[Rfam]
RNA sequence: AUGAUAUAGGUUGACACUCGGAGGGGAGGGGAAGGAAGGGGACGAAGGUUCCUUCUUCCUCGCCAAUCCCCUCCGUUCUCCUUCAGUUUGUCCAUGCGUUCCGUCUGCACACAAAGCGGAGCUUGUGGCUGAGUUAUGCAUGGCAAACCGGCAAGUCACGCGACGGCAGAGGGAAACUCCAUGACGAGUCGC
Dot-bracket structure: ....................(((((((.......................................)))))))............((((((.............(................................)....))))))...........................((((......))))...